[Rfam]
RNA sequence: AUAUAUCUUCAGGGCGGGGUGCAAUUCCCCACCGGUGGUUAUAGCCCACGAGCUAGAAAUAGCAUGAUUCGGUGUGAUUCCGAAGCCGACAGUAUAGUCUGGAUGAAAGAAGGCAAUA
Numbered sequence: 001a002u003a004u005a006u007c008u009u010c011a012g013g014g015c016g017g018g019g020u021g022c023a024a025u026u027c028c029c030c031a032c033c034g035g036u037g038g039u040u041a042u043a044g045c046c047c048a049c050g051a052g053c054u055a056g057a058a059a060u061a062g063c064a065u066g067a068u069u070c071g072g073u074g075u076g077a078u079u080c081c082g083a084a085g086c087c088g089a090c091a092g093u094a095u096a097g098u099c100u101g102g103a104u105g106a107a108a109g110a111a112g113g114c115a116a117u118a
Stems, first nucleotide, its partner, number of pairs: 004115001006113005017029003031098002033088002035049004044086002054062001068084005090101003
RNA: FMN riboswitch aptamer (RFN element)